[Rfam]
Shown here is a 103-nucleotide RNA sequence from Hoskinsella hominis, a member of the family "TPP riboswitch aptamer (THI element)". It scores 54 bits against the family's covariance model. Its family is annotated with thiamine pyrophosphate binding in the Gene Ontology. Pairs were carried over by alignment from the consensus structure, which is taken from published work.
RNA sequence: UGGAAAUCACGGGAGUUGGUAUGACCGGCUGAGAGGAAGUUGAAAACUUCGACCGAUACCUGAUUUGGAUAAUGCCAACGUAGGGAAUAAUCAUUAGUUAUUG
Numbered sequence: 001u002g003g004a005a006a007u008c009a010c011g012g013g014a015g016u017u018g019g020u021a022u023g024a025c026c027g028g029c030u031g032a033g034a035g036g037a038a039g040u041u042g043a044a045a046a047c048u049u050c051g052a053c054c055g056a057u058a059c060c061u062g063a064u065u066u067g068g069a070u071a072a073u074g075c076c077a078a079c080g081u082a083g084g085g086a087a088u089a090a091u092c093a094u095u096a097g098u099u100a101u102u103g
Stems, first nucleotide, its partner, number of pairs: 006091002010055003015029005036050005059084004065078004